[Rfam]
RNA sequence: UGAGGUCAACUCGUGCUUGCCAGUUCUUGGAGGAGUAUGGAUACAAGGUCAUCAAUGUUCAAGGUGGCAUGACGGCCUUUGAAAAUCUUUAAAAUUUUGCAUUUCUCCUACUUGGUGUGGACUAGGUAGGAGAAUUUUGU
Numbered sequence: 001u002g003a004g005g006u007c008a009a010c011u012c013g014u015g016c017u018u019g020c021c022a023g024u025u026c027u028u029g030g031a032g033g034a035g036u037a038u039g040g041a042u043a044c045a046a047g048g049u050c051a052u053c054a055a056u057g058u059u060c061a062a063g064g065u066g067g068c069a070u071g072a073c074g075g076c077c078u079u080u081g082a083a084a085a086u087c088u089u090u091a092a093a094a095u096u097u098u099g100c101a102u103u104u105c106u107c108c109u110a111c112u113u114g115g116u117g118u119g120g121a122c123u124a125g126g127u128a129g130g131a132g133a134a135u136u137u138u139g140u
Stems, first nucleotide, its partner, number of pairs: 010019001032138005039077002042074001046070001048068006104133009115122002
Dot-bracket structure: .........(........)............(((((..((.(...(.((((((.........)))))).)...).))..........................(((((((((..((....))..))))))))))))))..
RNA: Streptococcus sRNA SpF22